The record is a 468-nucleotide part of an RNA from Leucobacter chromiisoli, which matches "Bacterial large subunit ribosomal RNA" in Rfam.
Lineage of the source: Bacteria > Bacillati > Actinomycetes > Microbacteriaceae > Leucobacter.
On this family, see Cannone et al., BMC Bioinformatics 2002: "The comparative RNA web (CRW) site: an online database of comparative sequence and structure information for ribosomal, intron, and other RNAs".
RNA sequence: CUCUCCGAAAUGCAUUUAGGUGCAGCGUUGCGUGUUUCUUGCCGGAGGUAGAGCUACUGGAUGGCCGAUGGGCCCUACAAGGUUACUGACGUCAGCUAAACUCCGAAUGCCGGUAAGUGAGAGCGCAGCAGUGAGACUGUGGGGGAUAAGCUUCAUAGUCGAGAGGGAAACAACCCAGAUCACCAACUAAGGUCCCUAAGCGUGUGCUAAGUGGAAAAGGAUGUGGAGUUGCUGUGACAACCAGGAGGUUGGCUUAGAAGCAGCCAUCCUUGAAAGAGUGCGUAAUAGCUCACUGGUCAAGUGAUUCCGCGCCGACAAUGUAGCGGGGCUCAAGCACACCACCGAAGUUGUGGCACUCAGCGUAUAGGCAAGCCGUGUGUGGUUCAGCCCGUUGGGUGGGUAGGAGAGCGUCGUGUGGCGAGUGAAGCGGCGGAGUGAUCCAGUCGUGGAUGCCACACGAGUGAGAAU
Numbered sequence: 001c002u003c004u005c006c007g008a009a010a011u012g013c014a015u016u017u018a019g020g021u022g023c024a025g026c027g028u029u030g031c032g033u034g035u036u037u038c039u040u041g042c043c044g045g046a047g048g049u050a051g052a053g054c055u056a057c058u059g060g061a062u063g064g065c066c067g068a069u070g071g072g073c074c075c076u077a078c079a080a081g082g083u084u085a086c087u088g089a090c091g092u093c094a095g096c097u098a099a100a101c102u103c104c105g106a107a108u109g110c111c112g113g114u115a116a117g118u119g120a121g122a123g124c125g126c127a128g129c130a131g132u133g134a135g136a137c138u139g140u141g142g143g144g145g146a147u148a149a150g151c152u153u154c155a156u157a158g159u160c161g162a163g164a165g166g167g168a169a170a171c172a173a174c175c176c177a178g179a180u181c182a183c184c185a186a187c188u189a190a191g192g193u194c195c196c197u198a199a200g201c202g203u204g205u206g207c208u209a210a211g212u213g214g215a216a217a218a219g220g221a222u223g224u225g226g227a228g229u230u231g232c233u234g235u236g237a238c239a240a241c242c243a244g245g246a247g248g249u250u251g252g253c254u255u256a257g258a259a260g261c262a263g264c265c266a267u268c269c270u271u272g273a274a275a276g277a278g279u280g281c282g283u284a285a286u287a288g289c290u291c292a293c294u295g296g297u298c299a300a301g302u303g304a305u306u307c308c309g310c311g312c313c314g315a316c317a318a319u320g321u322a323g324c325g326g327g328g329c330u331c332a333a334g335c336a337c338a339c340c341a342c343c344g345a346a347g348u349u350g351u352g353g354c355a356c357u358c359a360g361c362g363u364a365u366a367g368g369c370a371a372g373c374c375g376u377g378u379g380u381g382g383u384u385c386a387g388c389c390c391g392u393u394g395g396g397u398g399g400g401u402a403g404g405a406g407a408g409c410g411u412c413g414u415g416u417g418g419c420g421a422g423u424g425a426a427g428c429g430g431c432g433g434a435g436u437g438a439u440c441c442a443g444u445c446g447u448g449g450a451u452g453c454c455a456c457a458c459g460a461g462u463g464a465g466a467a468u
Stems, first nucleotide, its partner, number of pairs: 001408006011024005026131001027129007036122001038117008051104001052102002058098003062094004070086001071084004135160010165176003180353004185349003191343003200340001202339006219313002223310010240297005246270003251265003271275001276291001280289002354398008409463001411460010427447005432441003